[Rfam]
RNA sequence: UUCUUAUCCAGAAAGACCGAGGGAAUUGACCCUAUGACGUCUUGGCAACCUGUCACGCGCUGCGUGAUAAGGUGCCACAUUCAACCCCCUGCAUUGCGGGGAAAGAUAAGCU
Numbered sequence: 001u002u003c004u005u006a007u008c009c010a011g012a013a014a015g016a017c018c019g020a021g022g023g024a025a026u027u028g029a030c031c032c033u034a035u036g037a038c039g040u041c042u043u044g045g046c047a048a049c050c051u052g053u054c055a056c057g058c059g060c061u062g063c064g065u066g067a068u069a070a071g072g073u074g075c076c077a078c079a080u081u082c083a084a085c086c087c088c089c090u091g092c093a094u095u096g097c098g099g100g101g102a103a104a105g106a107u108a109a110g111c112u
Base pairs, nucleotide, nucleotide: 003110004109005108006107007106008105013043014042015041016040017039021032022031023030026084027083028082029081044076045075046074047073049072050071051069052068053067054066055065056064080104085101086100087099088098090096
Dot-bracket structure: ..((((((....(((((...(((..[[[[)))......)))))((((.((((((((.......)))))).))))))...(]]]]((((.(.....).))))..)))))))..